[Rfam]
RNA sequence: GCGUUUUAUCCUUCAUUCCACCGGAGUCUGUAUCCAUGUUAACCAGAUUUCAGUGGUGUGAAGUGUAAGAGGCA
Numbered sequence: 001g002c003g004u005u006u007u008a009u010c011c012u013u014c015a016u017u018c019c020a021c022c023g024g025a026g027u028c029u030g031u032a033u034c035c036a037u038g039u040u041a042a043c044c045a046g047a048u049u050u051c052a053g054u055g056g057u058g059u060g061a062a063g064u065g066u067a068a069g070a071g072g073c074a
Base pairs, nucleotide, nucleotide: 011063012062013061014060015059016058019055020054021053023051024050025049026048028046029045030044